[Rfam]
Record summary:
UnaL2 LINE 3' element: a 54-nucleotide RNA from Coregonus sp. 'balchen'. The family's consensus secondary structure is taken from published work. Rfam classes the family as a cis-regulatory element. From the family's description: The eel long interspersed element (LINE) UnaL2 and its partner short interspersed element (SINE) share a conserved 3' tail containing a stem-loop that is critical for their retrotransposition. Presumably, the first step of retrotransposition is the recognition of their 3' tails by UnaL2-encoded reverse transcriptase. The solution structure of a 17-nucleotide RNA derived from the 3' tail of UnaL2 was determined by NMR.
RNA sequence: GGCAUGUCAAUUUGUAAGUCGCUCUGGAUAAGAGCGUCUGCUAAAUGAUGUAAA
Numbered sequence: 001g002g003c004a005u006g007u008c009a010a011u012u013u014g015u016a017a018g019u020c021g022c023u024c025u026g027g028a029u030a031a032g033a034g035c036g037u038c039u040g041c042u043a044a045a046u047g048a049u050g051u052a053a054a
Base pairs, nucleotide, nucleotide: 013043014041015040016039020036021035022034023033024032025031